[Rfam]
RNA sequence: UAAAUCCUGAUGUGUUCGUCCUAAUGCCUUAUCGUUUUGACCGACAAGUUAUAAUUACGGGAGUCUGUUUGUCUACCUUCCGAGUAUAAGCCUCCGCUUGAGAGGACAUAUGAGGUUUGUAGCAGGACACCCACCUGCCUAGAGCGGGUUCAAAACAAAGGUUAAAAAGACGGCAUAAUCGGGAUUUAU
Dot-bracket structure: .((((((((((((((.(((..............(((.(((((................(((.((((...(...(((...(.....((...((((.......))))..)).....)...))))..)))).)))..............)).))).))).............))))))).))))))))))..